[Rfam]
Shown here is a 66-nucleotide sequence from Peribacillus cavernae, a member of the family "Listeria sRNA sbrA". By type it is a small RNA. A reference for the family is Toledo-Arana et al. (2009), "The Listeria transcriptional landscape from saprophytism to virulence", Nature. NCBI's taxonomy places the organism under Bacteria, Bacillati, Bacillota, Bacilli, Peribacillus.
RNA sequence: AUACAACUAGAACCAUACCCCUAACUCCCUAGAUUUGGAUAGCAGAUUAUCUGCUAUCCCUUUUCU
Numbered sequence: 001a002u003a004c005a006a007c008u009a010g011a012a013c014c015a016u017a018c019c020c021c022u023a024a025c026u027c028c029c030u031a032g033a034u035u036u037g038g039a040u041a042g043c044a045g046a047u048u049a050u051c052u053g054c055u056a057u058c059c060c061u062u063u064u065c066u
Stems, first nucleotide, its partner, number of pairs: 007032003037059010